[Rfam]
Record summary:
Shown here is a 295-nucleotide sequence from Candidatus Parvarchaeum acidiphilum, a member of the family "Archaeal RNase P". About the family: Ribonuclease P (RNase P) is a ubiquitous endoribonuclease, found in archaea, bacteria and eukarya as well as chloroplasts and mitochondria. Lineage of the source: Archaea > Nanobdellati > Candidatus Parvarchaeota > Candidatus Parvarchaeum > Candidatus Parvarchaeum acidiphilum. Rfam links the family to the GO terms multimeric ribonuclease P complex, ribonuclease P activity and tRNA processing. Rfam classes the family as a ribozyme.

RNA sequence: GCGGUAUUGUAUACAACAGACCAUUAACUUUUAAUAAGUUGAUGGAGGAAGUCCGUUCACCUUUAAAACUGAAGUGCAGUAAUGCAUUGCUGUAAAAGGCAGGCAACUGAGCAGAAACGAUACCUGUUUUCAGUGCAAAGAGAUGAUGCGCAGGCUGAUUGCUGGGAAAGGGAUGAAACGGCAGUCCUUCAGGGUGCAAACCGGUAUUCCGGCGCUUAGUCGAAUGUUGUUGCAACUCACAAAGAAGCCUUGAAAUAGGCGGAGAGUUGACAAAAAACGGGCUAUUCAAUACCGC
Numbered sequence: 001g002c003g004g005u006a007u008u009g010u011a012u013a014c015a016a017c018a019g020a021c022c023a024u025u026a027a028c029u030u031u032u033a034a035u036a037a038g039u040u041g042a043u044g045g046a047g048g049a050a051g052u053c054c055g056u057u058c059a060c061c062u063u064u065a066a067a068a069c070u071g072a073a074g075u076g077c078a079g080u081a082a083u084g085c086a087u088u089g090c091u092g093u094a095a096a097a098g099g100c101a102g103g104c105a106a107c108u109g110a111g112c113a114g115a116a117a118c119g120a121u122a123c124c125u126g127u128u129u130u131c132a133g134u135g136c137a138a139a140g141a142g143a144u145g146a147u148g149c150g151c152a153g154g155c156u157g158a159u160u161g162c163u164g165g166g167a168a169a170g171g172g173a174u175g176a177a178a179c180g181g182c183a184g185u186c187c188u189u190c191a192g193g194g195u196g197c198a199a200a201c202c203g204g205u206a207u208u209c210c211g212g213c214g215c216u217u218a219g220u221c222g223a224a225u226g227u228u229g230u231u232g233c234a235a236c237u238c239a240c241a242a243a244g245a246a247g248c249c250u251u252g253a254a255a256u257a258g259g260c261g262g263a264g265a266g267u268u269g270a271c272a273a274a275a276a277a278c279g280g281g282c283u284a285u286u287c288a289a290u291a292c293c294g295c
Stems, first nucleotide, its partner, number of pairs: 001295003005291005011285001013230005021045010053280005058196004069192005074087005088101004102187002107184003123172003127168008148155002201212003